[Rfam]
RNA sequence: CGAGCUGGCUAAGCGGCCGCGGCUUCGGAGACAGGCCCGCUGGUCGGGUCCAGUCCGAGGUCGAGGAAAGUCCGGACUCCACAGAGCAGGGUGGUUGCUAACGGCAACCCGAGGCGACUCGCGGGAAAGUGCCACAGAGAACAGACUGCCGGCGCAUGGCUCGCCAUGGGGCCGGUGAGGGUGAAACGGUGCGGUAAGAGCGCACCAGCGCUCCGGGCGACCGGGGCGGCUCGGUAAACCCCACCUGGAGCAAGGUCAAAUGCCCGCACCCCCGUGGUGCGGGUGCGCAAGCGCAUGAGGGCUGCUCGCCCGAGCUUGCGGGUGGACCGCAUCAGGCGUCCGGCGACGGAUGUCGCAGAUGGAUGGCCGCUCACGACAGAAUCCGGCUUAUCGGCCAGCUCGCCGC
Number, nucleotide and partner (000 for none) at each position: 001c402002g401003a400004g399005c398006u397007g396008g395009c394010u393011a391012a371013g370014c369015g368016g367017c366018c365019g000020c063021g062022g061023c060024u059025u058026c057027g056028g055029a000030g000031a000032c000033a000034g000035g000036c000037c000038c000039g000040c000041u000042g000043g000044u000045c000046g000047g000048g000049u000050c000051c000052a000053g000054u000055c028056c027057g026058a025059g024060g023061u022062c021063g020064a000065g000066g000067a000068a389069a388070g387071u000072c386073c385074g384075g383076a382077c250078u249079c248080c247081a000082c000083a000084g307085a306086g305087c304088a000089g246090g245091g244092u243093g242094g108095u107096u106097g105098c104099u000100a000101a000102c000103g000104g098105c097106a096107a095108c094109c123110c121111g120112a119113g118114g000115c000116g000117a000118c113119u112120c111121g110122c000123g109124g241125g240126a000127a000128a000129g239130u238131g235132c234133c233134a000135c000136a000137g000138a000139g000140a000141a000142c000143a000144g000145a000146c180147u179148g176149c175150c174151g173152g172153c171154g000155c169156a000157u000158g000159g000160c000161u000162c000163g000164c000165c000166a000167u000168g000169g155170g000171g153172c152173c151174g150175g149176u148177g000178a000179g147180g146181g000182u000183g000184a000185a000186a000187c000188g206189g205190u204191g203192c202193g201194g000195u000196a000197a000198g000199a000200g000201c193202g192203c191204a190205c189206c188207a000208g230209c228210g227211c226212u225213c224214c223215g222216g221217g000218c000219g000220a000221c216222c215223g214224g213225g212226g211227c210228g209229g000230c208231u000232c000233g133234g132235u131236a000237a000238a130239c129240c125241c124242c093243a092244c091245c090246u089247g080248g079249a078250g077251c000252a000253a000254g328255g327256u326257c325258a000259a000260a000261u000262g000263c000264c000265c000266g000267c000268a000269c000270c000271c000272c000273c000274g000275u000276g000277g000278u000279g000280c000281g000282g000283g000284u000285g000286c000287g319288c318289a317290a316291g315292c314293g000294c000295a000296u000297g000298a000299g311300g310301g309302c308303u000304g087305c086306u085307c084308g302309c301310c300311c299312g000313a000314g292315c291316u290317u289318g288319c287320g000321g000322g000323u000324g000325g257326a256327c255328c254329g000330c000331a000332u000333c000334a000335g354336g353337c352338g351339u350340c349341c348342g347343g000344c000345g000346a000347c342348g341349g340350a339351u338352g337353u336354c335355g000356c000357a000358g000359a000360u000361g000362g000363a000364u000365g018366g017367c016368c015369g014370c013371u012372c000373a000374c000375g000376a000377c000378a000379g000380a000381a000382u076383c075384c074385g073386g072387c070388u069389u068390a000391u011392c000393g010394g009395c008396c007397a006398g005399c004400u003401c002402g001403c000404c000405g000406c000

The record is a 406-nucleotide RNA from Segniliparus rotundus, which matches "Bacterial RNase P class A" in Rfam. A search with the family's covariance model found it, with a score of 278 bits. The source organism's lineage runs through Bacteria, Actinomycetes, Segniliparaceae, Segniliparus and Segniliparus rotundus.